Rfam assigns this 131-nucleotide RNA sequence from Chaetura pelagica to the family "Small nucleolar RNA SNORA69".
The organism belongs to Chaetura, within Eukaryota.
The base pairs follow the family's consensus structure, which was predicted with PFOLD.
A search with the family's covariance model found it, with a score of 62 bits.
From the family's description: U69 is a member of the H/ACA class of small nucleolar RNAs (snoRNAs) which act as guides in the the modification of uridines to pseudouridines.

RNA sequence: AAAGCAGGCUGCAAUUGCAGUGCCCCAUCCCGUGGGAAUGCUGCCAUGUCCCUGCUGAGAGCAACUCUGUGAACACUGGCUUCGGUUUCACUGUGUGCUGGUGAAACCAUUUGUUCUUAACAGGUACAAGU
Numbered sequence: 001a002a003a004g005c006a007g008g009c010u011g012c013a014a015u016u017g018c019a020g021u022g023c024c025c026c027a028u029c030c031c032g033u034g035g036g037a038a039u040g041c042u043g044c045c046a047u048g049u050c051c052c053u054g055c056u057g058a059g060a061g062c063a064a065c066u067c068u069g070u071g072a073a074c075a076c077u078g079g080c081u082u083c084g085g086u087u088u089c090a091c092u093g094u095g096u097g098c099u100g101g102u103g104a105a106a107c108c109a110u111u112u113g114u115u116c117u118u119a120a121c122a123g124g125u126a127c128a129a130g131u
Base pairs, nucleotide, nucleotide: 003056004055005054006053007052008051018043019042020041021040022039025036026035066124067123068122069121070120072118073117075115084108085107086106087105088104089103090102091101092100093098